[Rfam]
This 108-nucleotide sequence from Staphylococcus gallinarum belongs to the Rfam family "SAM riboswitch aptamer (S box leader)".
NCBI's taxonomy places the organism under Bacteria, Bacillota, Caryophanales, Staphylococcaceae, Staphylococcus.
The match comes from Rfam's covariance-model search (81 bits).

RNA sequence: CUCUUAUCACGAGAGGUGGAGGGAUGUGCCCUACGAAGCCCGGCAACCGUCUGUAACAGAAAUGGUGCCAAUUCACAAAAAGUUAUGUUGGACUUUUGGAGAUGAGAG
Numbered sequence: 001c002u003c004u005u006a007u008c009a010c011g012a013g014a015g016g017u018g019g020a021g022g023g024a025u026g027u028g029c030c031c032u033a034c035g036a037a038g039c040c041c042g043g044c045a046a047c048c049g050u051c052u053g054u055a056a057c058a059g060a061a062a063u064g065g066u067g068c069c070a071a072u073u074c075a076c077a078a079a080a081a082g083u084u085a086u087g088u089u090g091g092a093c094u095u096u097u098g099g100a101g102a103u104g105a106g107a108g
Stems, first nucleotide, its partner, number of pairs: 001108008013041001015040003021031003025077004042069004047065002050060003073100001078097006